[Rfam]
RNA: Small nucleolar RNA SNORA71
Organism: Clupea harengus
RNA sequence: UCCUGUAUCGAAAGUGGUCGUGGUGUGAUGGUUGCCAGAUCAUUGAUAAUGCAGGAAGAGUGAACUGAAAGUCUUUCCCGUGUUUGCUGGACCCUCUGUUCCUGACAAACCCUGUAUCUUUCAAACA
Numbered sequence: 001u002c003c004u005g006u007a008u009c010g011a012a013a014g015u016g017g018u019c020g021u022g023g024u025g026u027g028a029u030g031g032u033u034g035c036c037a038g039a040u041c042a043u044u045g046a047u048a049a050u051g052c053a054g055g056a057a058g059a060g061u062g063a064a065c066u067g068a069a070a071g072u073c074u075u076u077c078c079c080g081u082g083u084u085u086g087c088u089g090g091a092c093c094c095u096c097u098g099u100u101c102c103u104g105a106c107a108a109a110c111c112c113u114g115u116a117u118c119u120u121u122c123a124a125a126c127a
Base pairs, nucleotide, nucleotide: 001056002055003054004053005052006051007050008049013044014043015042016041017040018039019038022036023035024034025033066123067122068121069120070119071118082110083109084108085107086106087104089102090101091100